Shown here is a 308-nucleotide RNA from Albula goreensis, a member of the family "Nuclear RNase P". Taxonomically the source falls in Albula (Eukaryota, Bilateria, Teleostomi, Actinopteri). By type it is a ribozyme.
[Rfam]
Nucleotides: 308
Base pairs, nucleotide, nucleotide: 001308002307003306004305008301009300010299013262014261015260016259017258022062023061024060025059035049036048037047038046039045072291073290074289075288076287082239083238084237085236092106093105094104095103096102107123108122109121110120111119112118124235125234126233127232128231129230130229144221145220146219263279264278265277266276
Number, partner (000 for none) and nucleotide at each position: 001308g002307c003306u004305g005000g006000g007000c008301g009300g010299a011000a012000g013262c014261u015260u016259a017258c018000u019000g020000u021000a022062g023061a024060g025059g026000u027000c028000a029000c030000a031000u032000g033000c034000a035049g036048a037047g038046u039045g040000c041000u042000c043000g044000u045039c046038a047037c048036u049035c050000g051000u052000c053000c054000a055000a056000u057000c058000g059025c060024c061023u062022c063000g064000g065000g066000g067000a068000a069000g070000g071000u072291c073290u074289g075288a076287g077000a078000c079000a080000u081000g082239a083238g084237c085236c086000a087000a088000u089000a090000g091000c092106u093105a094104u095103c096102c097000u098000a099000g100000c101000a102096g103095g104094g105093u106092a107123u108122c109121a110120c111119c112118u113000g114000a115000u116000a117000g118112g119111g120110g121109u122108g123107a124235g125234c126233g127232a128231g129230u130229g131000c132000a133000c134000a135000g136000a137000a138000a139000c140000u141000g142000g143000g144221g145220c146219c147000a148000a149000u150000g151000g152000c153000g154000a155000g156000u157000a158000u159000c160000u161000g162000a163000g164000c165000a166000g167000g168000a169000g170000a171000a172000g173000c174000c175000g176000u177000g178000g179000a180000g181000c182000a183000c184000a185000g186000u187000c188000a189000c190000c191000a192000g193000u194000g195000c196000u197000c198000c199000u200000c201000g202000g203000u204000g205000g206000a207000u208000g209000c210000g211000a212000u213000c214000u215000c216000g217000u218000c219146g220145g221144c222000u223000u224000g225000g226000a227000a228000a229130c230129a231128c232127u233126c234125g235124c236085g237084g238083c239082u240000g241000g242000c243000g244000u245000g246000u247000g248000a249000g250000u251000g252000c253000g254000a255000u256000g257000u258017g259016u260015a261014a262013g263279c264278u265277g266276g267000u268000a269000a270000a271000u272000a273000c274000c275000u276266c277265c278264a279263g280000a281000a282000c283000c284000c285000a286000a287076u288075u289074c290073a291072g292000a293000c294000u295000a296000c297000u298000c299010u300009c301008c302000a303000u304000c305004c306003a307002g308001c